[Rfam]
RNA sequence: UUGUUUUUUUAGGUUUAGAUUUUUGUGACUUAAGCAAGAAAAUCUCAACCUAAAGAAAAUA
Number, nucleotide and partner (000 for none) at each position: 001u000002u000003g000004u058005u057006u056007u055008u054009u053010u052011a051012g050013g049014u048015u047016u000017a045018g044019a043020u042021u041022u040023u039024u038025g000026u000027g000028a000029c000030u000031u000032a000033a000034g000035c000036a000037a000038g024039a023040a022041a021042a020043u019044c018045u017046c000047a015048a014049c013050c012051u011052a010053a009054a008055g007056a006057a005058a004059a000060u000061a000